[Rfam]
This 120-nucleotide sequence belongs to the Rfam family "atpB RNA". The family's RNA type in Rfam is cis-regulatory element.
Nucleotides: 120
Stems, first nucleotide, its partner, number of pairs: 001046012070100010
Number, partner (000 for none) and nucleotide at each position: 001046c002045u003044g004043u005042g006041g007040c008039c009038g010037c011036c012035a013000u014000g015000c016000u017000g018000a019000u020000g021000u022000g023000c024000g025000a026000c027000g028000g029000a030000g031000u032000c033000c034000g035012u036011g037010g038009u039008g040007g041006u042005u043004g044003c045002a046001g047000u048000g049000a050000g051000u052000u053000u054000a055000c056000a057000g058000a059000c060000a061000u062000c063000c064000a065000u066000c067000g068000c069000a070100c071099c072098g073097u074096g075095a076094g077093a078092a079091u080000c081000u082000u083000u084000c085000a086000u087000u088000a089000g090000a091079a092078u093077u094076c095075u096074u097073g098072c099071g100070g101000c102000c103000c104000g105000a106000a107000c108000a109000c110000g111000g112000g113000a114000g115000a116000g117000a118000a119000c120000g